[Rfam]
RNA sequence: UGAGUGUUAUGAUGGUGGGAAUUUUCCCUAGUCUAGCUCUGAGCUUCUCCGGGUCAACAGACUCGGAG
Numbered sequence: 001u002g003a004g005u006g007u008u009a010u011g012a013u014g015g016u017g018g019g020a021a022u023u024u025u026c027c028c029u030a031g032u033c034u035a036g037c038u039c040u041g042a043g044c045u046u047c048u049c050c051g052g053g054u055c056a057a058c059a060g061a062c063u064c065g066g067a068g
Base pairs, nucleotide, nucleotide: 002039003038004037005036011033012032013031017028018027019026020025047068048067049066050065051064052063053062054061055060
The family of this 68-nucleotide sequence from Pilibacter termitis is "L17 ribosomal protein downstream element". The family's consensus secondary structure is taken from published work. Lineage of the source: Bacteria > Bacillati > Bacillota > Lactobacillales > Pilibacter.